[Rfam]
RNA: Small nucleolar RNA SNORD113/SNORD114 family
RNA sequence: UGGAUCAGUGGUGACCACUGGUGGUUUAUGAGUCAUUGACGAGGACUACAAGUCAGGGAGUCUGAGGUCUAC
Numbered sequence: 001u002g003g004a005u006c007a008g009u010g011g012u013g014a015c016c017a018c019u020g021g022u023g024g025u026u027u028a029u030g031a032g033u034c035a036u037u038g039a040c041g042a043g044g045a046c047u048a049c050a051a052g053u054c055a056g057g058g059a060g061u062c063u064g065a066g067g068u069c070u071a072c
Stems, first nucleotide, its partner, number of pairs: 002070005